Rfam assigns this 228-nucleotide RNA sequence from Miscanthus lutarioriparius to the family "MIR6217 microRNA precursor family". Rfam links the family to the GO terms RISC complex and miRNA-mediated post-transcriptional gene silencing.
RNA sequence: CGGCUACAAAGUAACUUAUUUUGUAGUCACUUUGAGUUACGAUAAUUACUAUAUUAAUUUACGAGAUUAUAAUAACUCCUUACUAAGUAGUUUACUAUAACGUUAUGGUAAAUAUCCCCAUGUGUUAUAAUAACCCAACUAUCGUAAAUACGUAUUGAUAUUAUCGUAAAUUAGUAUAUAAAAUUAUCGUAAAUGAAAAUGACUACAGAAUAACUUAUUUUUUAGCUG
Numbered sequence: 001c002g003g004c005u006a007c008a009a010a011g012u013a014a015c016u017u018a019u020u021u022u023g024u025a026g027u028c029a030c031u032u033u034g035a036g037u038u039a040c041g042a043u044a045a046u047u048a049c050u051a052u053a054u055u056a057a058u059u060u061a062c063g064a065g066a067u068u069a070u071a072a073u074a075a076c077u078c079c080u081u082a083c084u085a086a087g088u089a090g091u092u093u094a095c096u097a098u099a100a101c102g103u104u105a106u107g108g109u110a111a112a113u114a115u116c117c118c119c120a121u122g123u124g125u126u127a128u129a130a131u132a133a134c135c136c137a138a139c140u141a142u143c144g145u146a147a148a149u150a151c152g153u154a155u156u157g158a159u160a161u162u163a164u165c166g167u168a169a170a171u172u173a174g175u176a177u178a179u180a181a182a183a184u185u186a187u188c189g190u191a192a193a194u195g196a197a198a199a200u201g202a203c204u205a206c207a208g209a210a211u212a213a214c215u216u217a218u219u220u221u222u223u224a225g226c227u228g
Stems, first nucleotide, its partner, number of pairs: 001228006008221007016213014031198003037192011050178013065165003069161003074155001080147004087142006093132002096129008107117002
The source organism's lineage runs through Eukaryota, Mesangiospermae, Liliopsida, Poaceae and Miscanthus.